[Rfam]
RNA sequence: GGCCAGUCCGAGUGCAGUGGUGUUUACAAGUCAUUGAUCGCAAAAAGUUACACAUUUCUUUGUUCCUUCUCCAUUCCCACUGCUUCACUAGACCAGCCUUUA
Numbered sequence: 001g002g003c004c005a006g007u008c009c010g011a012g013u014g015c016a017g018u019g020g021u022g023u024u025u026a027c028a029a030g031u032c033a034u035u036g037a038u039c040g041c042a043a044a045a046a047g048u049u050a051c052a053c054a055u056u057u058c059u060u061u062g063u064u065c066c067u068u069c070u071c072c073a074u075u076c077c078c079a080c081u082g083c084u085u086c087a088c089u090a091g092a093c094c095a096g097c098c099u100u101u102a
Stems, first nucleotide, its partner, number of pairs: 001098003006093003011089001014086001016081005022076001033063002036060002
RNA: Y RNA
Organism: Microcebus murinus